[Rfam]
RNA sequence: CUCUUAUCGAGAGAAGGUGGAGGGAAAUGGCCCUGUGAAACCCGGCAACCCCUGUUUUAGGAAGGUGCUAAGUCCAGCGUUAAUCGCAGAGAUGAGGG
Numbered sequence: 001c002u003c004u005u006a007u008c009g010a011g012a013g014a015a016g017g018u019g020g021a022g023g024g025a026a027a028u029g030g031c032c033c034u035g036u037g038a039a040a041c042c043c044g045g046c047a048a049c050c051c052c053u054g055u056u057u058u059a060g061g062a063a064g065g066u067g068c069u070a071a072g073u074c075c076a077g078c079g080u081u082a083a084u085c086g087c088a089g090a091g092a093u094g095a096g097g098g
Stems, first nucleotide, its partner, number of pairs: 001098008013043001016042003022033003028076003044069004049065002051061004073090001078086002

A member of the RNA family "SAM riboswitch aptamer (S box leader)" from Propionigenium maris, 98 nucleotides long. The organism belongs to Propionigenium maris, within Bacteria. Pairs were carried over by alignment from the consensus structure, which is taken from published work.